[Rfam]
RNA sequence: GUGAAGUGCGGAUUGUAGUUGAUAAAGGUAAAGCCGCGGGCCUGGUCGAUGGCGUGAAACAGCGGGUUCCAGUCGAAGAAGGGCAGCAUGAAGGCCGGCAGGCUGUUGGCCACGAACAUCUUGCCCGAAGCGAUCAUGUUGGCGCGCAU
Numbered sequence: 001g002u003g004a005a006g007u008g009c010g011g012a013u014u015g016u017a018g019u020u021g022a023u024a025a026a027g028g029u030a031a032a033g034c035c036g037c038g039g040g041c042c043u044g045g046u047c048g049a050u051g052g053c054g055u056g057a058a059a060c061a062g063c064g065g066g067u068u069c070c071a072g073u074c075g076a077a078g079a080a081g082g083g084c085a086g087c088a089u090g091a092a093g094g095c096c097g098g099c100a101g102g103c104u105g106u107u108g109g110c111c112a113c114g115a116a117c118a119u120c121u122u123g124c125c126c127g128a129a130g131c132g133a134u135c136a137u138g139u140u141g142g143c144g145c146g147c148a149u
Stems, first nucleotide, its partner, number of pairs: 002031001004029001009021003033053004037048003061149001062147003067077003082143001084141007096127003099123004104118001106115003
Dot-bracket structure: .(.(....(((.......))).......).).(((((((......))).)))).......((((..(((.....)))....(.(((((((.....(((((((.(.(((....)))..).)))).))).......))))))).).))).)
The record is a 149-nucleotide RNA sequence from Rhodobacteraceae bacterium WD3A24, which matches "Ruegeria cis2 sRNA" in Rfam. Rfam classes the family as a small RNA.